[Rfam]
RNA: S4-Flavobacteria ribosomal protein leader
Organism: Taxus chinensis
RNA sequence: UAUAAUCGAAGGAGUAGAUGCCCUUAAUUCAUAAUA
Numbered sequence: 001u002a003u004a005a006u007c008g009a010a011g012g013a014g015u016a017g018a019u020g021c022c023c024u025u026a027a028u029u030c031a032u033a034a035u036a
Base pairs, nucleotide, nucleotide: 001036002035003034005032006031008030009025010024011023012022